Shown here is a 61-nucleotide sequence, a member of the family "RAGATH-18 RNA". The base pairs follow the family's consensus structure, which is taken from published work. It is annotated as a small RNA.
RNA sequence: CUCUUGGAGAAUUACACCAACCCGAGUAGCUUAGGCAAAAGGGAAUUCGUUGAAGAGAGAA
Numbered sequence: 001c002u003c004u005u006g007g008a009g010a011a012u013u014a015c016a017c018c019a020a021c022c023c024g025a026g027u028a029g030c031u032u033a034g035g036c037a038a039a040a041g042g043g044a045a046u047u048c049g050u051u052g053a054a055g056a057g058a059g060a061a
Base pairs, nucleotide, nucleotide: 001059002058003057004056005055009048010047011046012045013044021043022042023041029036030035